[Rfam]
RNA sequence: GGGCUAUGAUGAUAAUUUUCAUUUCUCGAUACUGAUAUAACGUUGUGUUUUUAUGCGGACCCGCAAAAGCUAACCAUAUAAUUUUGAUGACUGCGUUUGUGCGUGUCUGAGCCUU
Numbered sequence: 001g002g003g004c005u006a007u008g009a010u011g012a013u014a015a016u017u018u019u020c021a022u023u024u025c026u027c028g029a030u031a032c033u034g035a036u037a038u039a040a041c042g043u044u045g046u047g048u049u050u051u052u053a054u055g056c057g058g059a060c061c062c063g064c065a066a067a068a069g070c071u072a073a074c075c076a077u078a079u080a081a082u083u084u085u086g087a088u089g090a091c092u093g094c095g096u097u098u099g100u101g102c103g104u105g106u107c108u109g110a111g112c113c114u115u
Stems, first nucleotide, its partner, number of pairs: 001114004
RNA: small nucleolar RNA snoR126
Organism: Manihot esculenta